A member of the RNA family "Fluoride riboswitch aptamer (crcB RNA motif)", 71 nucleotides long. Rfam links the family to the GO terms positive regulation of gene expression and response to fluoride. For this family Rfam cites "Fluoride ion encapsulation by Mg2+ ions and phosphates in a fluoride riboswitch" (Ren et al., Nature, 2012). Rfam's curators put it in the seed alignment.

RNA sequence: UAAUAACUUGGUGAUGGGGUUCACCAGAAACUUAUUUUCAAACCGCAAUUGCUGAUAACUCCUAUGUUAUA
Dot-bracket structure: .........[[[[..((((((]]]]...................((....))....)))))).........